[Rfam]
RNA sequence: AGGCCUGCAGAGAGAGAGGCAGGGUCUGAUCUCCAGCCUCCAUGGCAGCUGUUAAUCAGCUGUUGCCUCUCUCCUGGCUUUG
Numbered sequence: 001a002g003g004c005c006u007g008c009a010g011a012g013a014g015a016g017a018g019g020c021a022g023g024g025u026c027u028g029a030u031c032u033c034c035a036g037c038c039u040c041c042a043u044g045g046c047a048g049c050u051g052u053u054a055a056u057c058a059g060c061u062g063u064u065g066c067c068u069c070u071c072u073c074c075u076g077g078c079u080u081u082g
Stems, first nucleotide, its partner, number of pairs: 010074001012073011024061001026059005034051004
The record is an 82-nucleotide sequence from Cnephaeus nilssonii, which matches "mir-574 microRNA precursor family" in Rfam. The family's consensus secondary structure was predicted with RNAalifold. The family is grouped with related families in Rfam's "mir-574 microRNA precursor clan". The match comes from Rfam's covariance-model search (81 bits). NCBI's taxonomy places the organism under Eukaryota, Chordata, Tetrapoda, Mammalia, Cnephaeus.